The family of this 75-nucleotide sequence from Galemys pyrenaicus is "Small nucleolar RNA SNORD109A". Its family is annotated with RNA processing and nucleolus in the Gene Ontology. From the family's description: Humans have two copies of the SNORD109 gene, SNORD109A and SNORD109B. The match comes from Rfam's covariance-model search (38 bits).
RNA sequence: GGGUCAAUGAUGAGAAAAAAUGGCUGAGGAGAUGAUGGUCAAACAUCAAACUCUUGCAGGACUCAUCUGAGGCCC
Dot-bracket structure: (((((.................................................................)))))
Numbered sequence: 001g002g003g004u005c006a007a008u009g010a011u012g013a014g015a016a017a018a019a020a021u022g023g024c025u026g027a028g029g030a031g032a033u034g035a036u037g038g039u040c041a042a043a044c045a046u047c048a049a050a051c052u053c054u055u056g057c058a059g060g061a062c063u064c065a066u067c068u069g070a071g072g073c074c075c
Stems, first nucleotide, its partner, number of pairs: 001075005